[Rfam]
RNA sequence: CCCACACCCAUGUAUGUAGGACCUCAUAGGAUCACCAUUAAAUUUGGUAUAGAUCUCUAGAAAAGAUAUCACAUGGGUGUGAGAUUUGACUUUUCUAGAUAUUUGUACCAAAUUUAAUGGUGAUCCUUUGAGGUCCUACACACAUGGGUGUCGG
Numbered sequence: 001c002c003c004a005c006a007c008c009c010a011u012g013u014a015u016g017u018a019g020g021a022c023c024u025c026a027u028a029g030g031a032u033c034a035c036c037a038u039u040a041a042a043u044u045u046g047g048u049a050u051a052g053a054u055c056u057c058u059a060g061a062a063a064a065g066a067u068a069u070c071a072c073a074u075g076g077g078u079g080u081g082a083g084a085u086u087u088g089a090c091u092u093u094u095c096u097a098g099a100u101a102u103u104u105g106u107a108c109c110a111a112a113u114u115u116a117a118u119g120g121u122g123a124u125c126c127u128u129u130g131a132g133g134u135c136c137u138a139c140a141c142a143c144a145u146g147g148g149u150g151u152c153g154g
Stems, first nucleotide, its partner, number of pairs: 002153001004151010015140012028127001030125003034121021056099010067088002069082005
MIR8565 microRNA precursor family: a 154-nucleotide RNA from Amborella trichopoda. Pairs were carried over by alignment from the consensus structure, which was predicted with RNAalifold. A search with the family's covariance model found it, with a score of 150 bits. Lineage of the source: Eukaryota > Streptophyta > Streptophytina > Embryophyta > Amborella.